[Rfam]
RNA sequence: GGCCUUCUGGUGCUUACUACAGCUGUGUUCUUAUACUGUAUAGAAAGAGGAGGCAAAGUAAAUCUACCCCAUAUGCAGCUCAGCCCAGGCCAUAUGCCUGGUCUGCAUUGUGAAUGGGGAAACAUGA
Numbered sequence: 001g002g003c004c005u006u007c008u009g010g011u012g013c014u015u016a017c018u019a020c021a022g023c024u025g026u027g028u029u030c031u032u033a034u035a036c037u038g039u040a041u042a043g044a045a046a047g048a049g050g051a052g053g054c055a056a057a058g059u060a061a062a063u064c065u066a067c068c069c070c071a072u073a074u075g076c077a078g079c080u081c082a083g084c085c086c087a088g089g090c091c092a093u094a095u096g097c098c099u100g101g102u103c104u105g106c107a108u109u110g111u112g113a114a115u116g117g118g119g120a121a122a123c124a125u126g127a
Stems, first nucleotide, its partner, number of pairs: 002054007020038003026035003067119006081105003085101006

Rfam assigns this 127-nucleotide RNA from Castor canadensis to the family "Small nucleolar RNA SNORA51". ACA51 is a member of the H/ACA class of snoRNA that guide the sites of modification of uridines to pseudouridines. It scores 121 bits against the family's covariance model. Lineage of the source: Eukaryota > Deuterostomia > Euarchontoglires > Glires > Castor. The family has 9 seed sequences and 2,121 matches in Rfam 15.1. The family's consensus secondary structure was predicted with PFOLD.